[Rfam]
RNA sequence: GUCGGCGUCAUCACCGUGCAGCCGAGUUCCGUACCCGUGGUCACCGAACUGCCUGGCCGGACGAGCGCGUUCCUCGUCGCGCAAGUGCGCGCCCGGGUCGACGGCAUCGUGCAGCGCCGCGAGUUCACUGAAGGCAGUGAAGUCAAGGCCGGUCAGCGCCUCUAUAAGAUCGA
Number, nucleotide and partner (000 for none) at each position: 001g000002u000003c000004g053005g052006c051007g050008u047009c046010a000011u043012c000013a041014c040015c039016g038017u000018g000019c000020a000021g034022c000023c031024g030025a000026g000027u000028u000029c000030c024031g023032u000033a000034c021035c000036c000037g000038u016039g015040g014041u013042c000043a011044c000045c000046g009047a008048a000049c000050u007051g006052c005053c004054u000055g150056g149057c148058c147059g000060g000061a143062c142063g000064a000065g000066c000067g000068c000069g135070u134071u000072c133073c000074u131075c130076g000077u000078c000079g092080c091081g090082c089083a000084a000085g000086u000087g000088c000089g082090c081091g080092c079093c000094c121095g120096g000097g118098u000099c116100g115101a000102c114103g000104g112105c111106a110107u000108c000109g000110u106111g105112c104113a000114g102115c100116g099117c000118c097119g000120c095121g094122a000123g000124u000125u000126c000127a000128c000129u000130g075131a074132a000133g072134g070135c069136a000137g000138u000139g000140a000141a000142g062143u061144c000145a000146a000147g058148g057149c056150c055151g000152g000153u000154c000155a000156g000157c172158g171159c000160c168161u167162c000163u000164a000165u000166a000167a161168g160169a000170u000171c158172g157173a000
Shown here is a 173-nucleotide RNA from Trinickia dabaoshanensis, a member of the family "Burkholderia RNA 14". Co-purified with Hfq, expression confirmed by Northern blot. Putative functional homologue of PA-SraF. Overlaps coding sequence. NCBI's taxonomy places the organism under Bacteria, Pseudomonadota, Burkholderiales, Burkholderiaceae, Trinickia. Rfam links the family to the GO term protein binding. For this family Rfam cites "Experimental identification of small non-coding regulatory RNAs in the opportunistic human pathogen Burkholderia cenocepacia J2315" (Ramos et al., Genomics, 2013). Rfam classes the family as a small RNA.